[Rfam]
RNA: c-di-GMP-I riboswitch aptamer
RNA sequence: GUACGAUAAAGGCAAAACCACUGAAAAGUGGCGACGCAAAGCUAAAGGGACUAAAAUGGCAUCGAUGAAUGUCCAAAAUGUCAGCCAGCUACCGCC
Numbered sequence: 001g002u003a004c005g006a007u008a009a010a011g012g013c014a015a016a017a018c019c020a021c022u023g024a025a026a027a028g029u030g031g032c033g034a035c036g037c038a039a040a041g042c043u044a045a046a047g048g049g050a051c052u053a054a055a056a057u058g059g060c061a062u063c064g065a066u067g068a069a070u071g072u073c074c075a076a077a078a079u080g081u082c083a084g085c086c087a088g089c090u091a092c093c094g095c096c
Stems, first nucleotide, its partner, number of pairs: 012037002018031005040090004047086002049082003057075003